The family of this 131-nucleotide RNA sequence from Nocardiopsis sp. JB363 is "FMN riboswitch aptamer (RFN element)".

RNA sequence: ACGCGUGCUCCGGGGUCGGUGAAAGUCCGAACCGGCGGUGAUAGUCCGCGACCCGGUCGAAUCCAUCGACCGGUUGAACCGGUGUGAUUCCGGUACCGACGGUUAAAGUCCGGAUGGGAGGCAGUGCGCGU
Numbered sequence: 001a002c003g004c005g006u007g008c009u010c011c012g013g014g015g016u017c018g019g020u021g022a023a024a025g026u027c028c029g030a031a032c033c034g035g036c037g038g039u040g041a042u043a044g045u046c047c048g049c050g051a052c053c054c055g056g057u058c059g060a061a062u063c064c065a066u067c068g069a070c071c072g073g074u075u076g077a078a079c080c081g082g083u084g085u086g087a088u089u090c091c092g093g094u095a096c097c098g099a100c101g102g103u104u105a106a107a108g109u110c111c112g113g114a115u116g117g118g119a120g121g122c123a124g125u126g127c128g129c130g131u
Stems, first nucleotide, its partner, number of pairs: 003129007010120001017029003031109002033098002035049004044096002053073002078094005100112003

The source organism's lineage runs through Bacteria, Bacillati, Actinomycetota, Streptosporangiales and Nocardiopsis. Rfam 15.1 lists 6,230 matches to the family in 5,120 species. The family's consensus secondary structure is taken from published work.